[Rfam]
RNA: Early nodulin 40
RNA sequence: AUGGAAGAUGAAUGGCUUGAACAUGCACAUGGUUCUUGAGAGCAGAGGCAGGCGGAUGAAGAGCAAUGGCUGAGCUCCAGCUCAAGAAGCUCUUCAACUCCAUGGUGCCUUUCCUGGCCUCCUAGCCUCCUAGGUGGUUUGGCCGAGGUACACAGAAACCGGCAAGUCACAAAACGGCAAUGGUGAACUCCAGCAGGAGUCC
Numbered sequence: 001a002u003g004g005a006a007g008a009u010g011a012a013u014g015g016c017u018u019g020a021a022c023a024u025g026c027a028c029a030u031g032g033u034u035c036u037u038g039a040g041a042g043c044a045g046a047g048g049c050a051g052g053c054g055g056a057u058g059a060a061g062a063g064c065a066a067u068g069g070c071u072g073a074g075c076u077c078c079a080g081c082u083c084a085a086g087a088a089g090c091u092c093u094u095c096a097a098c099u100c101c102a103u104g105g106u107g108c109c110u111u112u113c114c115u116g117g118c119c120u121c122c123u124a125g126c127c128u129c130c131u132a133g134g135u136g137g138u139u140u141g142g143c144c145g146a147g148g149u150a151c152a153c154a155g156a157a158a159c160c161g162g163c164a165a166g167u168c169a170c171a172a173a174a175c176g177g178c179a180a181u182g183g184u185g186a187a188c189u190c191c192a193g194c195a196g197g198a199g200u201c202c
Base pairs, nucleotide, nucleotide: 047076048075049074089159091157093155094154108148109147110146187200188199189198190197